[Rfam]
RNA sequence: AGUCGACGAGGACGGAACAGGCAGCCGUCACACCCCAGGGUUUCCCAGUGGUUUUAAAGAGAUGCGGGCAGGUCAUCCCGCCGUGGCU
Number, nucleotide and partner (000 for none) at each position: 001a088002g087003u086004c085005g084006a000007c083008g082009a000010g000011g029012a028013c027014g026015g025016a000017a000018c000019a000020g074021g073022c072023a000024g000025c015026c014027g013028u012029c011030a000031c059032a052033c051034c050035c000036c000037a000038g000039g000040g000041u000042u000043u000044c000045c000046c000047a000048g000049u000050g034051g033052u032053u000054u000055u000056a000057a000058a000059g031060a000061g000062a000063u000064g081065c080066g079067g078068g077069c000070a000071g000072g022073u021074c020075a000076u000077c068078c067079c066080g065081c064082c008083g007084u005085g004086g003087c002088u001